Shown here is a 173-nucleotide sequence from Blautia liquoris, a member of the family "Lysine riboswitch aptamer".
Riboswitches are metabolite binding domains within certain messenger RNAs that serve as precision sensors for their corresponding targets.

[Rfam]
RNA sequence: UAUUGAGGUAGAGGUUGCGAUAUUUAUUAACACUGUGGAGUGAAGAGACACGAGGAAGCAGAACUAGGGAAUAUUGCCGAAAUCGGAGGGUAUCUCUUGUACAAUCCGGUUGGGACAUAGGUUAACAGCCUGUGGACUGUCUUAGUGUUUAACUAAGUUGCGCUAUGUUUACA
Number, nucleotide and partner (000 for none) at each position: 001u000002a000003u000004u000005g000006a168007g000008g166009u165010a164011g163012a000013g000014g000015u000016u000017g077018c076019g075020a074021u073022a072023u071024u070025u069026a000027u000028u000029a000030a000031c000032a000033c061034u060035g059036u058037g000038g000039a000040g000041u000042g000043a000044a000045g000046a000047g000048a000049c000050a000051c000052g000053a000054g000055g000056a000057a000058g036059c035060a034061g033062a000063a000064c000065u000066a000067g000068g000069g025070a024071a023072u022073a021074u020075u019076g018077c017078c000079g000080a000081a111082a110083u109084c108085g107086g106087a105088g000089g000090g102091u101092a100093u000094c000095u000096c000097u000098u000099g000100u092101a091102c090103a000104a000105u087106c086107c085108g084109g083110u082111u081112g138113g137114g000115a000116c134117a133118u132119a131120g130121g129122u128123u000124a000125a000126c000127a000128g122129c121130c120131u119132g118133u117134g116135g000136a000137c113138u112139g000140u000141c157142u156143u155144a154145g153146u152147g000148u000149u000150u000151a000152a146153c145154u144155a143156a142157g141158u000159u000160g000161c000162g000163c011164u010165a009166u008167g000168u006169u000170u000171a000172c000173a000